A member of the RNA family "HIV Ribosomal frameshift signal" from Lentivirus humimdef1, 52 nucleotides long.
The sequence is in the family's curated seed alignment.
It is annotated as a frameshift element.
Lineage of the source: Viruses > Ortervirales > Retroviridae > Orthoretrovirinae > Lentivirus humimdef1.
A reference for the family is Biswas et al. (2004), "The human immunodeficiency virus type 1 ribosomal frameshifting site is an invariant sequence determinant and an important target for antiviral therapy", J Virol.
The base pairs follow the family's consensus structure, which is taken from published work.

RNA sequence: UUUUUUAGGCAAGCUCUGGCCUUCCCACAAGGGAAGGCCAGGGAAUUUUACU
Numbered sequence: 001u002u003u004u005u006u007a008g009g010c011a012a013g014c015u016c017u018g019g020c021c022u023u024c025c026c027a028c029a030a031g032g033g034a035a036g037g038c039c040a041g042g043g044a045a046u047u048u049u050a051c052u
Stems, first nucleotide, its partner, number of pairs: 008052002011049003015042011